RNA sequence: UUUUUAAAUAAAGCGCCAGAACUAAUCUGAUCGGAAUCUAAGAUUAGUUGACGAGGUGGAGGUUAUCGAAUCUUCGGCGGAUGCCUCCCGGCUGGGACACACAGUCGAAUUGUCUUUCUCAAAACAUCGAGGCGACUCAGAUGGACAAAAGAAAGAUGAUGUGCACAU
Numbered sequence: 001u002u003u004u005u006a007a008a009u010a011a012a013g014c015g016c017c018a019g020a021a022c023u024a025a026u027c028u029g030a031u032c033g034g035a036a037u038c039u040a041a042g043a044u045u046a047g048u049u050g051a052c053g054a055g056g057u058g059g060a061g062g063u064u065a066u067c068g069a070a071u072c073u074u075c076g077g078c079g080g081a082u083g084c085c086u087c088c089c090g091g092c093u094g095g096g097a098c099a100c101a102c103a104g105u106c107g108a109a110u111u112g113u114c115u116u117u118c119u120c121a122a123a124a125c126a127u128c129g130a131g132g133c134g135a136c137u138c139a140g141a142u143g144g145a146c147a148a149a150a151g152a153a154a155g156a157u158g159a160u161g162u163g164c165a166c167a168u
Stems, first nucleotide, its partner, number of pairs: 020049008058088005066077004089107006111158007125143004129138003
A member of the RNA family "glmS glucosamine-6-phosphate activated ribozyme aptamer" from Lederbergia galactosidilytica, 168 nucleotides long. The family's consensus secondary structure is taken from published work. The source organism's lineage runs through Bacteria, Bacilli, Caryophanales, Bacillaceae and Lederbergia. It scores 119 bits against the family's covariance model.